[Rfam]
Small nucleolar RNA SNORD72: a 77-nucleotide RNA sequence from Acipenser ruthenus. About the family: snoRNA HBII-240 belongs to the CD family of snoRNAs.
RNA sequence: GUCUUAUCAGUGAUGUUUAAAAAUAAAUGUCUGAACAUAUGAAAUCAAGUGAUUCCAAAUUGUUGCUGAGAUAAGAC
Numbered sequence: 001g002u003c004u005u006a007u008c009a010g011u012g013a014u015g016u017u018u019a020a021a022a023a024u025a026a027a028u029g030u031c032u033g034a035a036c037a038u039a040u041g042a043a044a045u046c047a048a049g050u051g052a053u054u055c056c057a058a059a060u061u062g063u064u065g066c067u068g069a070g071a072u073a074a075g076a077c
Stems, first nucleotide, its partner, number of pairs: 002076007